[Rfam]
RNA sequence: UUCUUAUCCAGAGAAGUGGAGGGACUGGCCCUUUGACACUUCAGCAGCAGACUAGUAAUAGUACUGUGCUAAUUCCAGAAGCAGCAGGCUUGAAGAUAAGAA
Numbered sequence: 001u002u003c004u005u006a007u008c009c010a011g012a013g014a015a016g017u018g019g020a021g022g023g024a025c026u027g028g029c030c031c032u033u034u035g036a037c038a039c040u041u042c043a044g045c046a047g048c049a050g051a052c053u054a055g056u057a058a059u060a061g062u063a064c065u066g067u068g069c070u071a072a073u074u075c076c077a078g079a080a081g082c083a084g085c086a087g088g089c090u091u092g093a094a095g096a097u098a099a100g101a102a
Base pairs, nucleotide, nucleotide: 001102002101003100004099005098006097007096008095013042014041015040016039017038021031022030023029025078026077027076028075043070044069045068046067048066049065051062052061053060054059074094079091080090081089082088
The family of this 102-nucleotide RNA from Alkalicoccus daliensis is "SAM riboswitch aptamer (S box leader)". It scores 83 bits against the family's covariance model.